This 85-nucleotide sequence from Streptomyces sp. SID3343 belongs to the Rfam family "ZMP/ZTP riboswitch aptamer (pfl RNA motif)". Pairs were carried over by alignment from the consensus structure, which is taken from published work.
RNA sequence: GUUUCCGGCCGCAACUGGCGAAGGUGGAGAACCACCGGGGAGCGGCCGUUCUCCCACGUGAGCGUCGACCGCCUGGGCGCCUGCG
Number, nucleotide and partner (000 for none) at each position: 001g000002u000003u000004u000005c000006c048007g047008g046009c045010c044011g043012c042013a000014a000015c039016u038017g073018g072019c071020g070021a000022a000023g000024g035025u034026g033027g032028a000029g000030a000031a000032c027033c026034a025035c024036c000037g000038g016039g015040g000041a000042g012043c011044g010045g009046c008047c007048g006049u000050u000051c000052u000053c000054c000055c000056a000057c000058g000059u000060g000061a000062g080063c079064g078065u077066c076067g000068a000069c000070c020071g019072c018073c017074u000075g000076g066077g065078c064079g063080c062081c000082u000083g000084c000085g000